[Rfam]
RNA sequence: AAUUAAAAUAAAAUAAUACCUCAUAUAAUUGUGAUAAGAUGGUUCACGACUUUCUAGUGCCUACCGAUAACUGGCAACUAUGAGGGGAGUAUAUUUAUGU
Numbered sequence: 001a002a003u004u005a006a007a008a009u010a011a012a013a014u015a016a017u018a019c020c021u022c023a024u025a026u027a028a029u030u031g032u033g034a035u036a037a038g039a040u041g042g043u044u045c046a047c048g049a050c051u052u053u054c055u056a057g058u059g060c061c062u063a064c065c066g067a068u069a070a071c072u073g074g075c076a077a078c079u080a081u082g083a084g085g086g087g088a089g090u091a092u093a094u095u096u097a098u099g100u
Base pairs, nucleotide, nucleotide: 019085020084021083022082023081024080025079029049030048031047032046033045034044058076059075060074061073
A member of the RNA family "Purine riboswitch aptamer" from Halanaerobium salsuginis, 100 nucleotides long. From the family's description: Riboswitches are metabolite binding domains within certain messenger RNAs that serve as precision sensors for their corresponding targets. The organism belongs to Halanaerobium, within Bacteria. The family's consensus secondary structure is taken from published work.